RNA: Small nucleolar RNA snoR111
Organism: Arachis hypogaea
RNA sequence: UAGUAGAUUGAAGAGGCUGAUAAGUGUCUCUGCAAUCGUGUAUGAACUUUGAGGCAUAAUAAGGGGCGAGUCAUCGUUUCGGUCGUCAUCUGUUUUGUUGGCGAAUCGAUUGUUCCUCGUCUACAU
Numbered sequence: 001u002a003g004u005a006g007a008u009u010g011a012a013g014a015g016g017c018u019g020a021u022a023a024g025u026g027u028c029u030c031u032g033c034a035a036u037c038g039u040g041u042a043u044g045a046a047c048u049u050u051g052a053g054g055c056a057u058a059a060u061a062a063g064g065g066g067c068g069a070g071u072c073a074u075c076g077u078u079u080c081g082g083u084c085g086u087c088a089u090c091u092g093u094u095u096u097g098u099u100g101g102c103g104a105a106u107c108g109a110u111u112g113u114u115c116c117u118c119g120u121c122u123a124c125a126u
Stems, first nucleotide, its partner, number of pairs: 009035001013030005064122002067119004073110004083104006091097001